[Rfam]
The record is a 99-nucleotide sequence, which matches "DUF1874 RNA" in Rfam. The family's RNA type in Rfam is cis-regulatory element.
Nucleotides: 099
Stems, first nucleotide, its partner, number of pairs: 005092009015063009037054001039053005066081005
Number, partner (000 for none) and nucleotide at each position: 001000g002000u003000u004000a005092g006091u007090c008089c009088c010087g011086u012085u013084u014000a015063u016062g017061c018060g019059g020058u021057g022056g023055c024000c025000a026000u027000c028000c029000a030000g031000a032000g033000g034000u035000a036000a037054g038000a039053g040052g041051u042050g043049c044000c045000a046000a047000a048000g049043g050042c051041a052040c053039c054037c055023g056022c057021c058020g059019c060018c061017g062016c063015a064000g065000u066081u067080c068079u069078c070077c071000c072000g073000u074000g075000a076000g077070g078069g079068a080067g081066a082000a083000u084013a085012a086011g087010c088009g089008g090007g091006a092005c093000a094000g095000g096000a097000g098000g099000a